[Rfam]
RNA: drum RNA
RNA sequence: AAGCAGAAGUAAGGUGUUGUGCCAGAGAGCAGUGCCUUAUUAGCUUUAUAAGGGUUUGACAUUUACCACAAUCUGGCUAGAGACCGUAGGUCUUGAAAGAAAAUGUCAAAG
Numbered sequence: 001a002a003g004c005a006g007a008a009g010u011a012a013g014g015u016g017u018u019g020u021g022c023c024a025g026a027g028a029g030c031a032g033u034g035c036c037u038u039a040u041u042a043g044c045u046u047u048a049u050a051a052g053g054g055u056u057u058g059a060c061a062u063u064u065a066c067c068a069c070a071a072u073c074u075g076g077c078u079a080g081a082g083a084c085c086g087u088a089g090g091u092c093u094u095g096a097a098a099g100a101a102a103a104u105g106u107c108a109a110a111g
Stems, first nucleotide, its partner, number of pairs: 001046004009040012022076004059106003080094006